[Rfam]
RNA sequence: UAUGAACAAUGCAGGUAAGGGAAGUCGGCAAAAUAGAUCCGUAACUUUGGGAAAAGGGUUGGCUCUAGUGGGAUGAAGGUCUUCAAAGGGGGCUUCGCUGUGCUUGGCGUCUGACGGGAGUGGCUAGCUUUCGGGCUGGAUGCUUCUGUUGGAUUCCUUGCGUGGGGGAUGUUUCUCGCCUUCAGCAUAUCCCAGACUAGAACUGCAACGGGCAAAGGGAAUCCGACUGUUUAAUUAAAACAAAGCAUUGCGAAGGCCGUGGCCGGUGUUGACGCAAUGUGAUUUCUGCUCAGUGCUCUGAAUGUCAAAGUGAAGAGAUUCAAUCAAGCGCGGGUAAACAGCGGGAGUAACUAUGACUCUCUUAAGGUAGCCAAAUGCCUCGUCAUCUAAUUAGUGACGCGCAUGAAUGGAUUAACGAGAUUCCUACUGUCCCUAUCUGCUUCUAGCGAAACCACAGCCGAGGGAACGGGCUCGGCGGA
Numbered sequence: 001u002a003u004g005a006a007c008a009a010u011g012c013a014g015g016u017a018a019g020g021g022a023a024g025u026c027g028g029c030a031a032a033a034u035a036g037a038u039c040c041g042u043a044a045c046u047u048u049g050g051g052a053a054a055a056g057g058g059u060u061g062g063c064u065c066u067a068g069u070g071g072g073a074u075g076a077a078g079g080u081c082u083u084c085a086a087a088g089g090g091g092g093c094u095u096c097g098c099u100g101u102g103c104u105u106g107g108c109g110u111c112u113g114a115c116g117g118g119a120g121u122g123g124c125u126a127g128c129u130u131u132c133g134g135g136c137u138g139g140a141u142g143c144u145u146c147u148g149u150u151g152g153a154u155u156c157c158u159u160g161c162g163u164g165g166g167g168g169a170u171g172u173u174u175c176u177c178g179c180c181u182u183c184a185g186c187a188u189a190u191c192c193c194a195g196a197c198u199a200g201a202a203c204u205g206c207a208a209c210g211g212g213c214a215a216a217g218g219g220a221a222u223c224c225g226a227c228u229g230u231u232u233a234a235u236u237a238a239a240a241c242a243a244a245g246c247a248u249u250g251c252g253a254a255g256g257c258c259g260u261g262g263c264c265g266g267u268g269u270u271g272a273c274g275c276a277a278u279g280u281g282a283u284u285u286c287u288g289c290u291c292a293g294u295g296c297u298c299u300g301a302a303u304g305u306c307a308a309a310g311u312g313a314a315g316a317g318a319u320u321c322a323a324u325c326a327a328g329c330g331c332g333g334g335u336a337a338a339c340a341g342c343g344g345g346a347g348u349a350a351c352u353a354u355g356a357c358u359c360u361c362u363u364a365a366g367g368u369a370g371c372c373a374a375a376u377g378c379c380u381c382g383u384c385a386u387c388u389a390a391u392u393a394g395u396g397a398c399g400c401g402c403a404u405g406a407a408u409g410g411a412u413u414a415a416c417g418a419g420a421u422u423c424c425u426a427c428u429g430u431c432c433c434u435a436u437c438u439g440c441u442u443c444u445a446g447c448g449a450a451a452c453c454a455c456a457g458c459c460g461a462g463g464g465a466a467c468g469g470g471c472u473c474g475g476c477g478g479a
Stems, first nucleotide, its partner, number of pairs: 001445002004443002011440007019432003036060005045050001061204002064201006070193005076182004081178001085174003094166004102161002106157002109154014124139006205209001217425007224417002228242003245280008254269001256267004284411003288342003293339002295335004300331001303330003311322004343361006362366001382398005458475005
The family of this 479-nucleotide part of an RNA from Palmaria palmata is "Eukaryotic large subunit ribosomal RNA". The organism belongs to Palmaria, within Eukaryota.